Rfam assigns this 77-nucleotide RNA from Nannospalax galili to the family "Small nucleolar RNA SNORD79". Rfam links the family to the GO terms RNA processing and nucleolus. By type it is a C/D-box small nucleolar RNA. snoRNA U79 or Z22 is found in intron 7 of the gas5 gene in humans and is also present in mice. The literature on the family includes a 2002 paper in Mol Cell Biol by Galardi et al., "Purified box C/D snoRNPs are able to reproduce site-specific 2'-O-methylation of target RNA in vitro". Its Rfam clan is "SNORD74 clan".
RNA sequence: UAUUGUUGGUGAUGAUGUAAGAGUUAAAACAGAUGGGAAUCUCUCUGAAGGAGAUGGGAGAUUAAACGGAAACAGUG
Number, nucleotide and partner (000 for none) at each position: 001u077002a076003u075004u074005g073006u072007u071008g000009g000010u000011g000012a000013u000014g000015a000016u000017g000018u000019a000020a000021g000022a000023g000024u000025u000026a000027a000028a000029a000030c000031a000032g000033a000034u000035g000036g000037g000038a000039a000040u000041c000042u000043c000044u000045c000046u000047g000048a000049a000050g000051g000052a000053g000054a000055u000056g000057g000058g000059a000060g000061a000062u000063u000064a000065a000066a000067c000068g000069g000070a000071a007072a006073c005074a004075g003076u002077g001